[Rfam]
The family of this 97-nucleotide RNA from Protea cynaroides is "Plastid-rps12 3UTR RNA".
From the family's description: Plastid rpl20 is a non-coding RNA (ncRNA) recognised in plastids. It was found in the three prime untranslated region (3UTR) of rps12 gene, its 3UTR location sugest a role in transcript maduration.
Pairs were carried over by alignment from the consensus structure, which was predicted with LocARNA.
On this family, see Richter et al., Plant Commun 2023: "Retrograde signaling in plants: A critical review focusing on the GUN pathway and beyond".
A search with the family's covariance model found it, with a score of 88 bits.
By type it is a cis-regulatory element.
RNA sequence: GAUUUCCAUUGGUGCAAAUCCAAUCACCUUCAUUUGAGAUGAGAAGCAAUUCCCCAUUGGUAGCAAAUGGUUAUCCAUUAAGCGCUUUCUAACUUUU
Numbered sequence: 001g002a003u004u005u006c007c008a009u010u011g012g013u014g015c016a017a018a019u020c021c022a023a024u025c026a027c028c029u030u031c032a033u034u035u036g037a038g039a040u041g042a043g044a045a046g047c048a049a050u051u052c053c054c055c056a057u058u059g060g061u062a063g064c065a066a067a068u069g070g071u072u073a074u075c076c077a078u079u080a081a082g083c084g085c086u087u088u089c090u091a092a093c094u095u096u097u
Stems, first nucleotide, its partner, number of pairs: 009023004055084001056078002059075006
Dot-bracket structure: ........((((.......))))...............................(((.((((((.....)))))).)).....).............